[Rfam]
RNA sequence: UCUUCGCACCUAAUAUAUUAGGUGAUAGUGAAAAUUACGUGGUAUAACUUGGGUUAAGCUACAGUCAUAAUGAACUUAUGGCUAUAAAUCUUCCAAUUGCGGGAAAGCAUUAAAGCUCUUUCAACCAAACAUAUAUGGUAACAUAAUAUGUGGCACAGGUAAUGACUCGUGGUAUGGUAAAAUCGAAAGAGAUGUACCGCGCAAGCGUGGAAAUAUGUAAUCCGCAGCCAAGCAGCGUCUAAGAAUCAGACGGUGUGCAGUUCAUCGACUAAACGUAGGUUGACAUUAUAGGAUAUUAGUUAACAGUAUUUAACUUAUACUAAGUUAUUAAACUAUAUUAUACUUUAAACACACAAUUAGUCCUCUGCUUUCUUAUUCUUGAAUAAGAAAGCAGGGCUGGGCUGGGCUGUACUCGAUAUAUAAUAUACUAUAGUGUUUAAGAUAUAGUCAGGCUCCAUUUGAAAAAAUGCA
Numbered sequence: 001u002c003u004u005c006g007c008a009c010c011u012a013a014u015a016u017a018u019u020a021g022g023u024g025a026u027a028g029u030g031a032a033a034a035u036u037a038c039g040u041g042g043u044a045u046a047a048c049u050u051g052g053g054u055u056a057a058g059c060u061a062c063a064g065u066c067a068u069a070a071u072g073a074a075c076u077u078a079u080g081g082c083u084a085u086a087a088a089u090c091u092u093c094c095a096a097u098u099g100c101g102g103g104a105a106a107g108c109a110u111u112a113a114a115g116c117u118c119u120u121u122c123a124a125c126c127a128a129a130c131a132u133a134u135a136u137g138g139u140a141a142c143a144u145a146a147u148a149u150g151u152g153g154c155a156c157a158g159g160u161a162a163u164g165a166c167u168c169g170u171g172g173u174a175u176g177g178u179a180a181a182a183u184c185g186a187a188a189g190a191g192a193u194g195u196a197c198c199g200c201g202c203a204a205g206c207g208u209g210g211a212a213a214u215a216u217g218u219a220a221u222c223c224g225c226a227g228c229c230a231a232g233c234a235g236c237g238u239c240u241a242a243g244a245a246u247c248a249g250a251c252g253g254u255g256u257g258c259a260g261u262u263c264a265u266c267g268a269c270u271a272a273a274c275g276u277a278g279g280u281u282g283a284c285a286u287u288a289u290a291g292g293a294u295a296u297u298a299g300u301u302a303a304c305a306g307u308a309u310u311u312a313a314c315u316u317a318u319a320c321u322a323a324g325u326u327a328u329u330a331a332a333c334u335a336u337a338u339u340a341u342a343c344u345u346u347a348a349a350c351a352c353a354c355a356a357u358u359a360g361u362c363c364u365c366u367g368c369u370u371u372c373u374u375a376u377u378c379u380u381g382a383a384u385a386a387g388a389a390a391g392c393a394g395g396g397c398u399g400g401g402c403u404g405g406g407c408u409g410u411a412c413u414c415g416a417u418a419u420a421u422a423a424u425a426u427a428c429u430a431u432a433g434u435g436u437u438u439a440a441g442a443u444a445u446a447g448u449c450a451g452g453c454u455c456c457a458u459u460u461g462a463a464a465a466a467a468u469g470c471a
Stems, first nucleotide, its partner, number of pairs: 007024007087281005093275001098226006108217003227261002232256002236252005265450001267449005283436009456469005